[Rfam]
RNA sequence: AACAGUUGCAAUUGAGUUCCCGAUAGGGUCCGCACGUGCGGAAAUGCCUUGUAACCGACAAAUAAGGGGGAAAUAAACAUG
Numbered sequence: 001a002a003c004a005g006u007u008g009c010a011a012u013u014g015a016g017u018u019c020c021c022g023a024u025a026g027g028g029u030c031c032g033c034a035c036g037u038g039c040g041g042a043a044a045u046g047c048c049u050u051g052u053a054a055c056c057g058a059c060a061a062a063u064a065a066g067g068g069g070g071a072a073a074u075a076a077a078c079a080u081g
Base pairs, nucleotide, nucleotide: 017072018071019070020069021068025049026048027047029042030041031040032039033038055067056066